[Rfam]
RNA sequence: UGUUGAUCGAUGAUGAAUUGAAAAACUGCGUUAUCUAUCUGUAAAUUCCGAAAAGGAAUUGAAGAUAAUCUUAUUGUUUAAUUGAGAUCAGCU
Numbered sequence: 001u002g003u004u005g006a007u008c009g010a011u012g013a014u015g016a017a018u019u020g021a022a023a024a025a026c027u028g029c030g031u032u033a034u035c036u037a038u039c040u041g042u043a044a045a046u047u048c049c050g051a052a053a054a055g056g057a058a059u060u061g062a063a064g065a066u067a068a069u070c071u072u073a074u075u076g077u078u079u080a081a082u083u084g085a086g087a088u089c090a091g092c093u
Stems, first nucleotide, its partner, number of pairs: 002092006
Dot-bracket structure: .((((((...............................................................................)))))).
RNA: Small nucleolar RNA snoR27